Rfam assigns this 160-nucleotide RNA from Butyrivibrio sp. XB500-5 to the family "Clostridiales-1 RNA". Rfam classes the family as a small RNA.
[Rfam]
RNA sequence: AGCAAUAAAGGGGUGGAAACACAUAAAUUUGUGUGCUUGCACAAACAAAUUUAUGUAUUUACAGACCUAAACAUACAUGAGAAAGUAGCAUGAUAAUGCGGAUUUCGAAUGUAUGUAGAAUUGCGAGAGUGCGUAGCACGUAGCAAUUCGUUAUAUUGCU
Numbered sequence: 001a002g003c004a005a006u007a008a009a010g011g012g013g014u015g016g017a018a019a020c021a022c023a024u025a026a027a028u029u030u031g032u033g034u035g036c037u038u039g040c041a042c043a044a045a046c047a048a049a050u051u052u053a054u055g056u057a058u059u060u061a062c063a064g065a066c067c068u069a070a071a072c073a074u075a076c077a078u079g080a081g082a083a084a085g086u087a088g089c090a091u092g093a094u095a096a097u098g099c100g101g102a103u104u105u106c107g108a109a110u111g112u113a114u115g116u117a118g119a120a121u122u123g124c125g126a127g128a129g130u131g132c133g134u135a136g137c138a139c140g141u142a143g144c145a146a147u148u149c150g151u152u153a154u155a156u157u158g159c160u
Stems, first nucleotide, its partner, number of pairs: 001160007011067002014064001017060003021056011032043004071116008081106004088099004118149007129139004